Source information
The record is a 201-nucleotide RNA from Hibiscus syriacus, which matches "MIR159 microRNA precursor family" in Rfam. A search with the family's covariance model found it, with a score of 91 bits. The family's consensus secondary structure was predicted with WAR. A reference for the family is Jones-Rhoades and Bartel (2004), "Computational identification of plant microRNAs and their targets, including a stress-induced miRNA", Mol Cell. The organism belongs to Hibiscus, within Eukaryota.

[Rfam]
RNA sequence: ACAGGAAAGGAGGAGCUCCCUUCAGUCCAAGCAUGGAGAAAGAGGGAUGCAAAAUUAUCUCCCGCUUCAUUCACACAAUCACAGUAGUAAAAAUCUCCAUCCCAUUUUCUACCGUGUGCUUGAACGAAUGAGUCGGCAGCUAGUUCAACCCCCUUGUUCCCAUCCGUGAGUGGGCUAAAGGAAGCUCUCUCUUCCCAUCUU
Numbered sequence: 001a002c003a004g005g006a007a008a009g010g011a012g013g014a015g016c017u018c019c020c021u022u023c024a025g026u027c028c029a030a031g032c033a034u035g036g037a038g039a040a041a042g043a044g045g046g047a048u049g050c051a052a053a054a055u056u057a058u059c060u061c062c063c064g065c066u067u068c069a070u071u072c073a074c075a076c077a078a079u080c081a082c083a084g085u086a087g088u089a090a091a092a093a094u095c096u097c098c099a100u101c102c103c104a105u106u107u108u109c110u111a112c113c114g115u116g117u118g119c120u121u122g123a124a125c126g127a128a129u130g131a132g133u134c135g136g137c138a139g140c141u142a143g144u145u146c147a148a149c150c151c152c153c154u155u156g157u158u159c160c161c162a163u164c165c166g167u168g169a170g171u172g173g174g175c176u177a178a179a180g181g182a183a184g185c186u187c188u189c190u191c192u193u194c195c196c197a198u199c200u201u
Base pairs, nucleotide, nucleotide: 013187014186015185016184017183019181020180024176025175026174027173028172029171036164059139060138062136063135064134068130069129070128071127076122